[Rfam]
RNA: TPP riboswitch aptamer (THI element)
Organism: Paenibacillus sp. oral taxon 786
RNA sequence: GCAUAGGGAUACGGGGGCUUGAGCGAAUCAGGCUGAGAUAGCGGCAUAUUGCGCCGCGGACCGUUAAUCUGAUCUGGAUAAUGCCAGCGUAGAGAAUCGAUCGUCCGGGACU
Numbered sequence: 001g002c003a004u005a006g007g008g009a010u011a012c013g014g015g016g017g018c019u020u021g022a023g024c025g026a027a028u029c030a031g032g033c034u035g036a037g038a039u040a041g042c043g044g045c046a047u048a049u050u051g052c053g054c055c056g057c058g059g060a061c062c063g064u065u066a067a068u069c070u071g072a073u074c075u076g077g078a079u080a081a082u083g084c085c086a087g088c089g090u091a092g093a094g095a096a097u098c099g100a101u102c103g104u105c106c107g108g109g110a111c112u
Stems, first nucleotide, its partner, number of pairs: 008098003011064004017033005041057004068093004074087004